This 151-nucleotide sequence from Vigna angularis belongs to the Rfam family "MIR408 microRNA precursor family".

RNA sequence: UUGAGGUAACAGGACAGAGCAGGGGAACAGGCAGAGCAUGGAUGGAAUCAUCAACACAAUAGAGCCAAGAAAGUGAGAGUGACAGAGAAAUCAUCUGUUGUGGUUCUGCUCAUGCACUGCCUCUUCCCUGGCUCUGUCUCCUUUUCUCCUU
Numbered sequence: 001u002u003g004a005g006g007u008a009a010c011a012g013g014a015c016a017g018a019g020c021a022g023g024g025g026a027a028c029a030g031g032c033a034g035a036g037c038a039u040g041g042a043u044g045g046a047a048u049c050a051u052c053a054a055c056a057c058a059a060u061a062g063a064g065c066c067a068a069g070a071a072a073g074u075g076a077g078a079g080u081g082a083c084a085g086a087g088a089a090a091u092c093a094u095c096u097g098u099u100g101u102g103g104u105u106c107u108g109c110u111c112a113u114g115c116a117c118u119g120c121c122u123c124u125u126c127c128c129u130g131g132c133u134c135u136g137u138c139u140c141c142u143u144u145u146c147u148c149c150u151u
Stems, first nucleotide, its partner, number of pairs: 017134003022129006029122006036115006045106007
It scores 90 bits against the family's covariance model. The organism belongs to Vigna angularis, within Eukaryota. The family has 8 seed sequences and 299 matches in Rfam 15.1.